Shown here is a 72-nucleotide RNA sequence from Orthohepacivirus hominis, a member of the family "Hepatitis C virus stem-loop SL2531 and SL2549AU". Rfam's curators put it in the seed alignment. By type it is a cis-regulatory element. NCBI's taxonomy places the organism under Viruses, Orthornavirae, Kitrinoviricota, Hepaciviridae, Orthohepacivirus. A reference for the family is Pirakitikulr et al. (2016), "The Coding Region of the HCV Genome Contains a Network of Regulatory RNA Structures", Mol Cell.

[Rfam]
RNA sequence: UAUUAGCAGAUGCACGUGUUUGCGCGUGUUUGUGGAUGAUGCUGUUAGUGUCCCAAGCAGAAGCGGCCUUGG
Numbered sequence: 001u002a003u004u005a006g007c008a009g010a011u012g013c014a015c016g017u018g019u020u021u022g023c024g025c026g027u028g029u030u031u032g033u034g035g036a037u038g039a040u041g042c043u044g045u046u047a048g049u050g051u052c053c054c055a056a057g058c059a060g061a062a063g064c065g066g067c068c069u070u071g072g
Stems, first nucleotide, its partner, number of pairs: 006023007024067002027065005034058001037055002